[Rfam]
Nucleotides: 030
Stems, first nucleotide, its partner, number of pairs: 001030005007025001009024005014018001
Number, partner (000 for none) and nucleotide at each position: 001030g002029u003028u004027c005026u006000u007025g008000c009024u010023u011022c012021a013020a014018c015000a016000g017000u018014g019000u020013u021012u022011g023010a024009a025007c026005g027004g028003a029002a030001c
Iron response element I: a 30-nucleotide sequence from Xenopus laevis.
The family's consensus secondary structure is taken from published work.
It is one of the family's seed sequences.
Rfam 15.1 lists 6,829 matches to the family in 599 species.
Lineage of the source: Eukaryota > Chordata > Craniata > Pipoidea > Xenopus.